The record is a 94-nucleotide RNA sequence from Sinocyclocheilus grahami, which matches "mir-7 microRNA precursor family" in Rfam. The source organism's lineage runs through Eukaryota, Metazoa, Vertebrata, Osteoglossocephalai and Sinocyclocheilus.
RNA sequence: AGCCCUGCGCUGCUGCGUGGAAGACUAGUGAUUUUGUUGUGAAACUGAACAAAAGACCAACAACAAAACCCAGUCUGCCUCUCAGCACAGGGCA
Numbered sequence: 001a002g003c004c005c006u007g008c009g010c011u012g013c014u015g016c017g018u019g020g021a022a023g024a025c026u027a028g029u030g031a032u033u034u035u036g037u038u039g040u041g042a043a044a045c046u047g048a049a050c051a052a053a054a055g056a057c058c059a060a061c062a063a064c065a066a067a068a069c070c071c072a073g074u075c076u077g078c079c080u081c082u083c084a085g086c087a088c089a090g091g092g093c094a
Base pairs, nucleotide, nucleotide: 002093003092004091005090006089011087013085014084015083017081019079020078022076023075024074025073026072028071030069032067033066034065036064037063038062039061040060
For this family Rfam cites "Identification of novel genes coding for small expressed RNAs" (Lagos-Quintana et al., Science, 2001). It scores 60 bits against the family's covariance model. This family represents the microRNA (miRNA) precursor mir-7.